Annotation
Shown here is a 74-nucleotide RNA sequence from Sanguibacter antarcticus, a member of the family "tRNA".
[Rfam]
RNA sequence: CGGGGUGUGGCGCAGGUUGGUAGCGCGUCCGGUUUGGGGCCGGAAGGUCGCAGGUUCGAAUCCUGUCACCCCGA
Numbered sequence: 001c002g003g004g005g006u007g008u009g010g011c012g013c014a015g016g017u018u019g020g021u022a023g024c025g026c027g028u029c030c031g032g033u034u035u036g037g038g039g040c041c042g043g044a045a046g047g048u049c050g051c052a053g054g055u056u057c058g059a060a061u062c063c064u065g066u067c068a069c070c071c072c073g074a
Stems, first nucleotide, its partner, number of pairs: 001073007010026004028044005050066005
It scores 62 bits against the family's covariance model. The family's RNA type in Rfam is transfer RNA. The source organism's lineage runs through Bacteria, Actinomycetota, Actinomycetes, Sanguibacteraceae and Sanguibacter.